[Rfam]
RNA sequence: UGCCACAAACCCGUAGAUCCGAACUUGUGGUAUUAGUCCGCACAAGCUUGUAUCUAUAGGUAUGUGUCUG
Dot-bracket structure: .(.((((..((...((((.(((.((((((...........)))))).))).))))...))..)))).)..
The record is a 70-nucleotide sequence, which matches "mir-10 microRNA precursor family" in Rfam. The literature on the family includes a 2001 paper in Science by Lee and Ambros, "An extensive class of small RNAs in Caenorhabditis elegans". Its family is annotated with miRNA-mediated post-transcriptional gene silencing and RISC complex in the Gene Ontology. The family's consensus secondary structure was predicted with PFOLD.